[Rfam]
RNA: D12-methyl RNA
RNA sequence: CAUUGCAGGUUCGACCCCUGCCAGCCCAACCAAUGGGUGAGCCGGGCACAGGAUAAGCUCGGAGGGCGGGACG
Number, nucleotide and partner (000 for none) at each position: 001c035002a034003u033004u032005g031006c000007a000008g026009g025010u024011u023012c000013g000014a000015c000016c000017c000018c000019u000020g000021c000022c000023a011024g010025c009026c008027c000028a000029a000030c000031c005032a004033a003034u002035g001036g000037g000038u000039g000040a000041g000042c062043c061044g060045g059046g058047c000048a000049c000050a000051g000052g000053a000054u000055a000056a000057g000058c046059u045060c044061g043062g042063a000064g000065g000066g000067c000068g000069g000070g000071a000072c000073g000